[Rfam]
Plastid-rpl16 group II-D1 intron: a 47-nucleotide RNA sequence from Zingiber officinale. About the family: Plastid-rpl16 is a non-coding RNA (ncRNA) recognised in plastids. It was recognised in and intronic region of a ribosome rpl16 gene. The family has 538 seed sequences and 1,446 matches in Rfam 15.1. Rfam links the family to the GO term Group II intron splicing. On this family, see Richter et al., Plant Commun 2023: "Retrograde signaling in plants: A critical review focusing on the GUN pathway and beyond". The family's consensus secondary structure was predicted with LocARNA. Taxonomically the source falls in Zingiber (Eukaryota, Magnoliopsida, Liliopsida, commelinids).

RNA sequence: AAGAGCCUCGAGUUAAUAAAAACUAAGUAGAUUGACUCGAGAAGAGA
Numbered sequence: 001a002a003g004a005g006c007c008u009c010g011a012g013u014u015a016a017u018a019a020a021a022a023c024u025a026a027g028u029a030g031a032u033u034g035a036c037u038c039g040a041g042a043a044g045a046g047a
Stems, first nucleotide, its partner, number of pairs: 007041002010038008